[Rfam]
RNA sequence: UUUUUUUUUAAUAAAAAUUCAAGGGCUGCCGUGCACGGCAGCCUUUUUU
Numbered sequence: 001u002u003u004u005u006u007u008u009u010a011a012u013a014a015a016a017a018u019u020c021a022a023g024g025g026c027u028g029c030c031g032u033g034c035a036c037g038g039c040a041g042c043c044u045u046u047u048u049u
Stems, first nucleotide, its partner, number of pairs: 006017004024043007
isrD Hfq binding RNA: a 49-nucleotide RNA sequence from Coffea arabica. It is annotated as a small RNA.